RNA sequence: UGCAAAUGAUGUUUUUUCUCACGAUGGUCUUCCAAGUCCUCUGGGCUCUGACGACAAUGCCUAAUGGCAAUACUGAUGUGGUUGA
Numbered sequence: 001u002g003c004a005a006a007u008g009a010u011g012u013u014u015u016u017u018c019u020c021a022c023g024a025u026g027g028u029c030u031u032c033c034a035a036g037u038c039c040u041c042u043g044g045g046c047u048c049u050g051a052c053g054a055c056a057a058u059g060c061c062u063a064a065u066g067g068c069a070a071u072a073c074u075g076a077u078g079u080g081g082u083u084g085a
Stems, first nucleotide, its partner, number of pairs: 001080004

Shown here is an 85-nucleotide sequence from Amphiprion percula, a member of the family "Small nucleolar RNA SNORD35". The base pairs follow the family's consensus structure, which was predicted with PFOLD. U35 is a C/D box snoRNA located in intron 6 of ribosomal protein L13A and intron 3 of ribosomal protein S11 in humans and at homologous positions in mouse and chicken ribosomal protein genes. U35 guides the methylation of 2'-O-ribose sites in 28S rRNA. Gene Ontology terms of the family: nucleolus and RNA processing. A reference for the family is Nicoloso et al. (1996), "Intron-encoded, antisense small nucleolar RNAs: the characterization of nine novel species points to their direct role as guides for the 2'-O-ribose methylation of rRNAs", J Mol Biol. Its Rfam clan is "SNORD35 clan".